[Rfam]
RNA sequence: UGAUGCUUAGGUGAUGGGGUUCCACCUUCAACCGCCCAUUUUUGGUGCUGAUGACUCCUACUUCAAC
Numbered sequence: 001u002g003a004u005g006c007u008u009a010g011g012u013g014a015u016g017g018g019g020u021u022c023c024a025c026c027u028u029c030a031a032c033c034g035c036c037c038a039u040u041u042u043u044g045g046u047g048c049u050g051a052u053g054a055c056u057c058c059u060a061c062u063u064c065a066a067c
Stems, first nucleotide, its partner, number of pairs: 010026004016058006034048002037045001

Shown here is a 67-nucleotide RNA sequence from Belliella baltica, a member of the family "Fluoride riboswitch aptamer (crcB RNA motif)". Lineage of the source: Bacteria > Pseudomonadati > Cytophagales > Cyclobacteriaceae > Belliella baltica. For this family Rfam cites "Widespread genetic switches and toxicity resistance proteins for fluoride" (Baker et al., Science, 2012). It scores 55 bits against the family's covariance model.